[Rfam]
RNA: Small nucleolar RNA SNORD35
Organism: Centropus unirufus
RNA sequence: CGGUGAUGAUGUCCAAUCUCACGAUGGUCUGCAGAGCCCACGGGGGCUGCUGACACCGCCAGCGGCACCUGCUGAGCCGGGAGC
Numbered sequence: 001c002g003g004u005g006a007u008g009a010u011g012u013c014c015a016a017u018c019u020c021a022c023g024a025u026g027g028u029c030u031g032c033a034g035a036g037c038c039c040a041c042g043g044g045g046g047c048u049g050c051u052g053a054c055a056c057c058g059c060c061a062g063c064g065g066c067a068c069c070u071g072c073u074g075a076g077c078c079g080g081g082a083g084c
Stems, first nucleotide, its partner, number of pairs: 001079004